[Rfam]
RNA sequence: GCCGGAUGAUGACGACCUGGGUGGAAACCUACCCUGUGGGCACCCAUGUCCGAGCCCCCUGGC
Numbered sequence: 001g002c003c004g005g006a007u008g009a010u011g012a013c014g015a016c017c018u019g020g021g022u023g024g025a026a027a028c029c030u031a032c033c034c035u036g037u038g039g040g041c042a043c044c045c046a047u048g049u050c051c052g053a054g055c056c057c058c059c060u061g062g063c
Base pairs, nucleotide, nucleotide: 001063002062003061004060005059014050015049016048018046019045020044021043022042023041029039030038031037
RNA: Selenocysteine insertion sequence 1